Notes
A member of the RNA family "Spi-1 (PU.1) 5' UTR regulatory element" from Delphinapterus leucas, 168 nucleotides long. Gene Ontology term of the family: translation repressor activity. The match comes from Rfam's covariance-model search (153 bits). The family's consensus secondary structure is taken from published work. The literature on the family includes a 1997 paper in Nucleic Acids Res by Hensold et al., "The conserved 5'-untranslated leader of Spi-1 (PU.1) mRNA is highly structured and potently inhibits translation in vitro but not in vivo". The organism belongs to Delphinapterus, within Eukaryota. The family has 5 seed sequences and 131 matches in Rfam 15.1.

[Rfam]
RNA sequence: CUCACCCAGGGCUCCUGUAGCUCAAGGGGCAGGCCUGAGCCCUGUACCCGCCCUGAGUCCGUCCAGCCCCCGACGGGGCGCCCCAUCCCCAGGGGCUCCGCACUGGCCCCCACCAAGGCAGGGGACCUGACCGGCUCGGAGCUCGGCUGGAUGUUAGAGGCGUGCAAA
Numbered sequence: 001c002u003c004a005c006c007c008a009g010g011g012c013u014c015c016u017g018u019a020g021c022u023c024a025a026g027g028g029g030c031a032g033g034c035c036u037g038a039g040c041c042c043u044g045u046a047c048c049c050g051c052c053c054u055g056a057g058u059c060c061g062u063c064c065a066g067c068c069c070c071c072g073a074c075g076g077g078g079c080g081c082c083c084c085a086u087c088c089c090c091a092g093g094g095g096c097u098c099c100g101c102a103c104u105g106g107c108c109c110c111c112a113c114c115a116a117g118g119c120a121g122g123g124g125a126c127c128u129g130a131c132c133g134g135c136u137c138g139g140a141g142c143u144c145g146g147c148u149g150g151a152u153g154u155u156a157g158a159g160g161c162g163u164g165c166a167a168a
Stems, first nucleotide, its partner, number of pairs: 008043007017034002020030004044163002047160002060153006068095004075089004097140004104129001105127002108124004141147002